Rfam assigns this 93-nucleotide sequence from Cottoperca gobio to the family "Vault RNA". The base pairs follow the family's consensus structure, which is taken from published work. NCBI's taxonomy places the organism under Eukaryota, Bilateria, Ctenosquamata, Bovichtidae, Cottoperca. By type it is a non-coding RNA gene.

RNA sequence: GCACUGUCUUAGCUCAGCGGUUACUCCUAUUCACCAACGAAUUGCCUUCUCUGUUAAUCAGGGAUCGAACCGCGGGCGCUGUAUAGUGUUUUU
Numbered sequence: 001g002c003a004c005u006g007u008c009u010u011a012g013c014u015c016a017g018c019g020g021u022u023a024c025u026c027c028u029a030u031u032c033a034c035c036a037a038c039g040a041a042u043u044g045c046c047u048u049c050u051c052u053g054u055u056a057a058u059c060a061g062g063g064a065u066c067g068a069a070c071c072g073c074g075g076g077c078g079c080u081g082u083a084u085a086g087u088g089u090u091u092u093u
Base pairs, nucleotide, nucleotide: 002088003087004086005085006084007083012077013076014075015074017073018072019071020070025069027067029065